[Rfam]
RNA sequence: UGUAGUAGCAAAUACUCCAGAGAGGCCCUGGAGGACCGAAGUGGAGAAGGGUUUCGUGUGAACAGCCGUUGAACACGAGUCAGUCGAUCCUAAGGCUUAGGGGAAGCCUUAAUCAAGCGUUUGGAGAAAUUUUUUUUUUUUACGAAAAAAAUACCAAAUGAGAGCCGAAAGGGAAUCUGGUCCAUAUUCCAGAACCUGGUAGCGGAAUCGUUCGGACCCUCGUAUCCGUCGUGGCAACGCGACACGACCAGGAGACGCCCACCGAAGCUCUGGGAAGAGUUGUCUUUUCUGCAUAAGCCGCCGAGGCCCUGGAAUCCUCUUGCAGGGAGAAUGGGUUUUGGCAUUGGCGAAGAGUGCUGCAGUUCUCGCAGCAUCCACGAGUGGUCGGUGGGACCUUGAAAAUCCUGGGGAGAUUACGGCGGACUCGCACCAGCUCGUACCCAUAUCCGCAGCAGGUCUCCAAGGUGAACAGCCUCUGGUCGA
Number, nucleotide and partner (000 for none) at each position: 001u000002g000003u000004a000005g000006u000007a000008g000009c000010a000011a000012a000013u000014a000015c033016u032017c031018c030019a029020g028021a000022g000023a000024g000025g000026c000027c000028c020029u019030g018031g017032a016033g015034g481035a480036c479037c478038g000039a000040a000041g000042u000043g461044g460045a459046g458047a000048a000049g441050g440051g000052u000053u000054u078055c077056g076057u075058g074059u073060g000061a000062a000063c071064a070065g000066c000067c000068g000069u000070u064071g063072a000073a059074c058075a057076c056077g055078a054079g000080u000081c000082a000083g000084u000085c437086g436087a435088u000089c172090c171091u000092a000093a000094g166095g165096c000097u111098u000099a000100g109101g108102g107103g000104a000105a000106g000107c102108c101109u100110u000111a097112a000113u000114c000115a000116a000117g000118c000119g159120u158121u157122u156123g155124g154125a000126g000127a000128a000129a000130u000131u000132u000133u000134u000135u000136u000137u000138u000139u000140u000141u000142a000143c000144g000145a000146a000147a000148a000149a000150a000151a000152u000153a000154c124155c123156a122157a121158a120159u119160g000161a000162g000163a000164g000165c095166c094167g000168a000169a000170a000171g090172g089173g000174a000175a000176u193177c192178u191179g190180g189181u000182c000183c000184a000185u000186a000187u000188u000189c180190c179191a178192g177193a176194a000195c000196c433197u432198g431199g430200u000201a000202g000203c000204g000205g000206a000207a000208u000209c000210g000211u000212u000213c000214g000215g000216a000217c000218c000219c000220u000221c000222g426223u000224a000225u423226c421227c000228g000229u000230c241231g240232u239233g238234g000235c000236a000237a000238c233239g232240c231241g230242a000243c000244a000245c000246g000247a000248c408249c407250a406251g405252g404253a403254g000255a000256c000257g000258c392259c391260c390261a000262c388263c387264g386265a385266a000267g000268c383269u000270c379271u377272g376273g000274g292275a000276a290277g289278a288279g000280u000281u000282g000283u000284c000285u000286u000287u000288u278289c277290u276291g000292c274293a000294u000295a000296a000297g348298c347299c346300g345301c000302c000303g000304a000305g000306g336307c335308c334309c333310u000311g000312g000313a000314a000315u327316c326317c325318u324319c000320u000321u000322g000323c000324a318325g317326g316327g315328a000329g000330a000331a000332u000333g309334g308335g307336u306337u000338u000339u000340g000341g000342c000343a000344u000345u300346g299347g298348c297349g000350a000351a000352g000353a000354g000355u373356g372357c371358u370359g369360c368361a000362g000363u000364u000365c000366u000367c000368g360369c359370a358371g357372c356373a355374u000375c000376c272377a271378c000379g270380a000381g000382u000383g268384g000385u265386c264387g263388g262389u000390g260391g259392g258393a000394c000395c000396u000397u000398g000399a000400a000401a000402a000403u253404c252405c251406u250407g249408g248409g000410g000411a000412g000413a000414u000415u000416a000417c000418g000419g000420c000421g226422g000423a225424c000425u000426c222427g000428c000429a000430c199431c198432a197433g196434c000435u087436c086437g085438u000439a000440c050441c049442c000443a000444u000445a000446u000447c456448c455449g000450c000451a000452g000453c000454a000455g448456g447457u000458c046459u045460c044461c043462a000463a475464g474465g473466u472467g000468a000469a000470c000471a000472g466473c465474c464475u463476c000477u000478g037479g036480u035481c034482g000483a000
RNA: Eukaryotic large subunit ribosomal RNA, nucleotides 1578 to 2060
Organism: Tigriopus californicus